[Rfam]
RNA sequence: UAAGCCAUCGAGAACCUUUUGAAUCAAAAUCAAACUAGUGAUUCAAAAGGUUCUUACAAA
Number, nucleotide and partner (000 for none) at each position: 001u000002a000003a000004g000005c000006c000007a000008u000009c000010g055011a054012g053013a052014a051015c050016c049017u048018u047019u046020u045021g044022a043023a042024u041025c040026a039027a000028a000029a000030u000031c000032a000033a000034a000035c000036u000037a000038g000039u026040g025041a024042u023043u022044c021045a020046a019047a018048a017049g016050g015051u014052u013053c012054u011055u010056a000057c000058a000059a000060a000
RNA: Plastid-ccsA-ndhD-1 3UTR RNA